[Rfam]
RNA sequence: CUGUAGUGUGACAUGCCCGUUUGGGAUUUACUCUGAUGUAUGUUAAUUAUUAUUUAAUUAUUUUGGGUAACGGGGUGUUACAUUCA
Number, nucleotide and partner (000 for none) at each position: 001c000002u000003g000004u000005a084006g083007u082008g081009u080010g079011a078012c077013a076014u075015g000016c074017c073018c072019g071020u070021u069022u000023g000024g000025g000026a000027u000028u000029u000030a000031c000032u000033c000034u000035g000036a000037u000038g000039u000040a000041u000042g000043u000044u000045a000046a000047u000048u000049a000050u000051u000052a000053u000054u000055u000056a000057a000058u000059u000060a000061u000062u000063u000064u000065g000066g000067g000068u000069a021070a020071c019072g018073g017074g016075g014076u013077g012078u011079u010080a009081c008082a007083u006084u005085c000086a000